[Rfam]
RNA sequence: AUUUUUGCUCUUUUAGUAUUUGUCUCGAAGGCUUUCUGAAGUCAGGAAGCCCAU
Numbered sequence: 001a002u003u004u005u006u007g008c009u010c011u012u013u014u015a016g017u018a019u020u021u022g023u024c025u026c027g028a029a030g031g032c033u034u035u036c037u038g039a040a041g042u043c044a045g046g047a048a049g050c051c052c053a054u
Stems, first nucleotide, its partner, number of pairs: 030051009
Record summary: The record is a 54-nucleotide RNA from Atractosteus spatula, which matches "U7 small nuclear RNA" in Rfam. The match comes from Rfam's covariance-model search (46 bits). Animal histone pre-mRNAs are spliced by a different mechanism than nuclear pre-mRNAs and self-splicing introns.